[Rfam]
RNA: MIR8565 microRNA precursor family
Organism: Amborella trichopoda
Nucleotides: 154
Stems, first nucleotide, its partner, number of pairs: 003152004008147001010145002013142001015140009025130004030125003034121005040115029069082003073078001
Number, partner (000 for none) and nucleotide at each position: 001000c002000c003152c004151c005150c006149a007000c008147c009000c010145a011144u012000u013142u014000g015140u016139g017138u018137a019136g020135g021134a022133c023132c024000c025130c026129a027128a028127a029000g030125g031124a032123u033000c034121a035120u036119c037118a038117u039000c040115a041114a042113a043112u044111u045110u046109g047108g048107c049106a050105u051104g052103g053102a054101u055100c056099u057098c058097u059096a060095g061094a062093a063092a064091a065090g066089u067088u068087a069082u070081c071080a072000c073078a074000u075000g076000g077000g078073u079000u080071u081070g082069g083000g084000a085000c086000u087068u088067g089066a090065c091064u092063u093062u094061u095060u096059u097058a098057g099056a100055g101054a102053u103052c104051c105050a106049u107048g108047c109046c110045a111044a112043a113042u114041u115040u116000a117038a118037u119036g120035g121034u122000g123032a124031u125030c126000c127028u128027u129026u130025g131000a132023g133022g134021u135020c136019c137018u138017a139016c140015a141000c142013a143000c144011a145010u146000a147008g148000a149006u150005g151004g152003g153000a154000g